[Rfam]
RNA sequence: UGGGUGGUAUCUUAGUGUGAGAGCUACACCAAUAUAAAUGUGAACGCUUACUUUUUGAAUUAAUUCUGCUUCGAGCCAUUGGGACGGGGACAGAAGG
Numbered sequence: 001u002g003g004g005u006g007g008u009a010u011c012u013u014a015g016u017g018u019g020a021g022a023g024c025u026a027c028a029c030c031a032a033u034a035u036a037a038a039u040g041u042g043a044a045c046g047c048u049u050a051c052u053u054u055u056u057g058a059a060u061u062a063a064u065u066c067u068g069c070u071u072c073g074a075g076c077c078a079u080u081g082g083g084a085c086g087g088g089g090a091c092a093g094a095a096g097g
Stems, first nucleotide, its partner, number of pairs: 001031003004027005010022002066093003069089005076083002

pan motif: a 97-nucleotide sequence from Polycladospora coralii.
The source organism's lineage runs through Bacteria, Bacillota, Bacilli, Thermoactinomycetaceae and Polycladospora.